Small nucleolar RNA Z247: a 139-nucleotide RNA from Eragrostis curvula. Its family is annotated with nucleolus and RNA processing in the Gene Ontology. By type it is a C/D-box small nucleolar RNA. On this family, see Chen et al., Nucleic Acids Res 2003: "The high diversity of snoRNAs in plants: identification and comparative study of 120 snoRNA genes from Oryza sativa". NCBI's taxonomy places the organism under Eukaryota, Viridiplantae, Embryophyta, commelinids, Eragrostis.
RNA sequence: CCUCUGCUCGAUGAAGAAUUGGUGUCCUACAUCCUGGCUGGCCUUGACCUCGAUUUCAAUCCGGUCGUGUCUGCAGUGCUGGCCAGGGUUGAGCCCAUCACGGUGGGCGAGCUGUAUUCUCAGCUCCUAAGCUAUGAGC
Number, nucleotide and partner (000 for none) at each position: 001c000002c000003u000004c138005u137006g000007c000008u134009c000010g000011a000012u000013g000014a000015a000016g000017a000018a000019u000020u000021g000022g000023u000024g000025u000026c000027c000028u000029a000030c000031a000032u000033c000034c000035u000036g000037g000038c000039u000040g000041g000042c000043c000044u000045u000046g000047a000048c000049c000050u000051c000052g000053a000054u000055u000056u000057c000058a000059a000060u000061c000062c000063g000064g000065u000066c000067g000068u000069g000070u000071c000072u000073g000074c000075a000076g000077u000078g000079c000080u000081g000082g000083c000084c000085a000086g000087g000088g000089u000090u000091g000092a000093g108094c107095c106096c105097a104098u103099c000100a000101c000102g000103g098104u097105g096106g095107g094108c093109g000110a000111g000112c000113u000114g000115u000116a000117u000118u000119c000120u000121c000122a000123g000124c000125u000126c000127c000128u000129a000130a000131g000132c000133u000134a008135u000136g000137a005138g004139c000